[Rfam]
RNA sequence: UCUCCCGCUUCACCUCCCUGAGCGGGUGCCUUAACCCCAUUAAGGCUGUUUCGCCCCCGGCCUCCCUUUUUGCCGGGGGCUUUUUAUU
Dot-bracket structure: ...((((((...........)))))).(((((((.....)))))))......((((((((............))))))))........
Notes: A member of the RNA family "Burkholderia RNA 7 (anti-hemB)" from Rhodocyclus tenuis, 88 nucleotides long. The family has 26 seed sequences and 479 matches in Rfam 15.1. About the family: This RNA motif was identified by computational search in b-proteobacteria Burkholderia. Co-purified with Hfq, expression confirmed by Northern blot. A search with the family's covariance model found it, with a score of 78 bits.